[Rfam]
RNA sequence: CCAUGCCUCUUUAAGUUAUUUAAAAACUUAAUAGAAAAUUGGGUGAAUUGCAAGGACAACUUUAAAUUUUUAAAGUCAAUUUGCAGCGAAGUUUAUAUCGGUAUAAUUAAAUAUGUUUAAUUUGAUAUAAAAACGUUCAACGACUAACAGGUGAGUAGUACUAAACAAUAAUCCUGUACUGUUAUAGAUUAAACAGUUACGCCCAAUCAGUUUGUUAUAGUCUAAAAAAAAAAAUCUAUAGAUUUUUUUUUUAUUGCUGGUAUUUCAAAUUGAAAGACAUAGUCUGAACUUAACUGUGAAGUUAAG
Numbered sequence: 001c002c003a004u005g006c007c008u009c010u011u012u013a014a015g016u017u018a019u020u021u022a023a024a025a026a027c028u029u030a031a032u033a034g035a036a037a038a039u040u041g042g043g044u045g046a047a048u049u050g051c052a053a054g055g056a057c058a059a060c061u062u063u064a065a066a067u068u069u070u071u072a073a074a075g076u077c078a079a080u081u082u083g084c085a086g087c088g089a090a091g092u093u094u095a096u097a098u099c100g101g102u103a104u105a106a107u108u109a110a111a112u113a114u115g116u117u118u119a120a121u122u123u124g125a126u127a128u129a130a131a132a133a134c135g136u137u138c139a140a141c142g143a144c145u146a147a148c149a150g151g152u153g154a155g156u157a158g159u160a161c162u163a164a165a166c167a168a169u170a171a172u173c174c175u176g177u178a179c180u181g182u183u184a185u186a187g188a189u190u191a192a193a194c195a196g197u198u199a200c201g202c203c204c205a206a207u208c209a210g211u212u213u214g215u216u217a218u219a220g221u222c223u224a225a226a227a228a229a230a231a232a233a234a235u236c237u238a239u240a241g242a243u244u245u246u247u248u249u250u251u252u253a254u255u256g257c258u259g260g261u262a263u264u265u266c267a268a269a270u271u272g273a274a275a276g277a278c279a280u281a282g283u284c285u286g287a288a289c290u291u292a293a294c295u296g297u298g299a300a301g302u303u304a305a306g
Stems, first nucleotide, its partner, number of pairs: 038207005044201002049085006059076005086136002092130002099124003140285001142284005209271006217263003291304005
Shown here is a 306-nucleotide RNA from Agrocybe pediades, a member of the family "Group I catalytic intron". Rfam describes the family as follows. Group I catalytic introns are large self-splicing ribozymes. The source organism's lineage runs through Eukaryota, Fungi, Agaricales, Agaricineae and Agrocybe.